[Rfam]
RNA sequence: GUUAGCGUGAGGUGGAGUCUGAAGGGUCUUAAGUCAAAGAUCUGAACAAAACUAAAGCGAACCGGCAGGUGUCAGUAGGUGAGCAGACAAAAUGUAGCGAAGUCCAAUAGUUGAUAAGCUGGUCAAUGUCAGGAUGGUUGUUUAGAUGGAAACUAUAUGGA
Numbered sequence: 001g002u003u004a005g006c007g008u009g010a011g012g013u014g015g016a017g018u019c020u021g022a023a024g025g026g027u028c029u030u031a032a033g034u035c036a037a038a039g040a041u042c043u044g045a046a047c048a049a050a051a052c053u054a055a056a057g058c059g060a061a062c063c064g065g066c067a068g069g070u071g072u073c074a075g076u077a078g079g080u081g082a083g084c085a086g087a088c089a090a091a092a093u094g095u096a097g098c099g100a101a102g103u104c105c106a107a108u109a110g111u112u113g114a115u116a117a118g119c120u121g122g123u124c125a126a127u128g129u130c131a132g133g134a135u136g137g138u139u140g141u142u143u144a145g146a147u148g149g150a151a152a153c154u155a156u157a158u159g160g161a
Stems, first nucleotide, its partner, number of pairs: 002015003006011001029160003034155001040147010062137002065129003071123006078104003083098002086095001
Group II catalytic intron D1-D4-3: a 161-nucleotide RNA sequence from Anoxybacter fermentans. The base pairs follow the family's consensus structure. From the family's description: Group II introns are found in rRNA, tRNA and mRNA of organelles in fungi, plants and protists, and also in mRNA in bacteria. Taxonomically the source falls in Anoxybacter (Bacteria, Bacillota, Clostridia, Halanaerobiales).